[Rfam]
RNA sequence: UCCUCGCUCAAAGAAUCGUAAUCAAAGCUUACAAAAAGAGAAGUCUGUACAUCCGUAUGUUGGGCUUCUCAUAACUAUACACACUGCUUUGGGAGAAAGUCCCCGGACACCUCUUGCUCCUUGGAGUACAGAGAAAGCGGAAACGCACCCCCAUAAAAGCAACUUUCGGGGUUCACCUCCUCCCCACCUCUUCUUACCUCAUAGCUCCUUUCUUGGCUGUUCGUACUCCUGCCACUUUCUUCUCGAGUCCCGGGGUGCAGUCUGAGAGACCCUGUGGAUGAAGAUAUGAGUCCGAGCUUGACUGAUCUGUGCACCGCAUGGCUUUGGGUCGGGAGUGGGGGGAGGAGGUCCACGACUGUGUUUGGGUGUGAGGAAGGGGGCUCAUAGGUGCGCGGAUGGGGGAAGUAUUCGUCGAGAUGGAUAGACAUGCGAUUGCCUUCUUCUGACUGACUCUGGUUUCCGGAUCGGUAUUGGGAAGAUGAUUGUGACUCAAUGGGGCUUACAAGCGAGGCGAGG
Numbered sequence: 001u002c003c004u005c006g007c008u009c010a011a012a013g014a015a016u017c018g019u020a021a022u023c024a025a026a027g028c029u030u031a032c033a034a035a036a037a038g039a040g041a042a043g044u045c046u047g048u049a050c051a052u053c054c055g056u057a058u059g060u061u062g063g064g065c066u067u068c069u070c071a072u073a074a075c076u077a078u079a080c081a082c083a084c085u086g087c088u089u090u091g092g093g094a095g096a097a098a099g100u101c102c103c104c105g106g107a108c109a110c111c112u113c114u115u116g117c118u119c120c121u122u123g124g125a126g127u128a129c130a131g132a133g134a135a136a137g138c139g140g141a142a143a144c145g146c147a148c149c150c151c152c153a154u155a156a157a158a159g160c161a162a163c164u165u166u167c168g169g170g171g172u173u174c175a176c177c178u179c180c181u182c183c184c185c186a187c188c189u190c191u192u193c194u195u196a197c198c199u200c201a202u203a204g205c206u207c208c209u210u211u212c213u214u215g216g217c218u219g220u221u222c223g224u225a226c227u228c229c230u231g232c233c234a235c236u237u238u239c240u241u242c243u244c245g246a247g248u249c250c251c252g253g254g255g256u257g258c259a260g261u262c263u264g265a266g267a268g269a270c271c272c273u274g275u276g277g278a279u280g281a282a283g284a285u286a287u288g289a290g291u292c293c294g295a296g297c298u299u300g301a302c303u304g305a306u307c308u309g310u311g312c313a314c315c316g317c318a319u320g321g322c323u324u325u326g327g328g329u330c331g332g333g334a335g336u337g338g339g340g341g342g343a344g345g346a347g348g349u350c351c352a353c354g355a356c357u358g359u360g361u362u363u364g365g366g367u368g369u370g371a372g373g374a375a376g377g378g379g380g381c382u383c384a385u386a387g388g389u390g391c392g393c394g395g396a397u398g399g400g401g402g403a404a405g406u407a408u409u410c411g412u413c414g415a416g417a418u419g420g421a422u423a424g425a426c427a428u429g430c431g432a433u434u435g436c437c438u439u440c441u442u443c444u445g446a447c448u449g450a451c452u453c454u455g456g457u458u459u460c461c462g463g464a465u466c467g468g469u470a471u472u473g474g475g476a477a478g479a480u481g482a483u484u485g486u487g488a489c490u491c492a493a494u495g496g497g498g499c500u501u502a503c504a505a506g507c508g509a510g511g512c513g514a515g516g
Base pairs, nucleotide, nucleotide: 002516003515004514005513006512007511008509009508014434015433016432017431018430019429022093023091024090025089026088027087028086038070039069040068041067042066043065044064045063046062047061097501098500099499101498102497103496104495137146138145139144150171151170152169175406176405181402182401183400184399185398186397187395188394190392195390196389197388198387436485439482440481